[Rfam]
A member of the RNA family "tRNA", 83 nucleotides long. The base pairs follow the family's consensus structure, which is taken from published work. The sequence is in the family's curated seed alignment.
RNA sequence: GUCAGGAUGGCCGAGCGGUCUAAGGCGCUGCGUUCAGGUCGCAGUCUCCCCUGGAGGCGUGGGUUCGAAUCCCACUUCUGACA
Number, nucleotide and partner (000 for none) at each position: 001g082002u081003c080004a079005g078006g077007a076008u000009g000010g026011c025012c024013g000014a000015g000016c000017g000018g000019u000020c000021u000022a000023a000024g012025g011026c010027g000028c044029u043030g042031c041032g040033u000034u000035c000036a000037g000038g000039u000040c032041g031042c030043a029044g028045u000046c000047u000048c000049c000050c000051c000052u000053g000054g000055a000056g000057g000058c000059g075060u074061g073062g072063g071064u000065u000066c000067g000068a000069a000070u000071c063072c062073c061074a060075c059076u007077u006078c005079u004080g003081a002082c001083a000